RNA sequence: CCACGGCCGGCAGGGAAACCGUUACCAUUACUGAGUUUAGUAAUGGUAACGGUUCUGCUGAUGGCCGAGC
Numbered sequence: 001c002c003a004c005g006g007c008c009g010g011c012a013g014g015g016a017a018a019c020c021g022u023u024a025c026c027a028u029u030a031c032u033g034a035g036u037u038u039a040g041u042a043a044u045g046g047u048a049a050c051g052g053u054u055c056u057g058c059u060g061a062u063g064g065c066c067g068a069g070c
Stems, first nucleotide, its partner, number of pairs: 008063002011060003017054004022049012

This 70-nucleotide RNA sequence from Eolophus roseicapilla belongs to the Rfam family "mir-451 microRNA precursor family". Rfam 15.1 lists 658 matches to the family in 500 species. The organism belongs to Eolophus, within Eukaryota. For this family Rfam cites "Role of MicroRNA miR-27a and miR-451 in the regulation of MDR1/P-glycoprotein expression in human cancer cells" (Zhu et al., Biochem Pharmacol, 2008).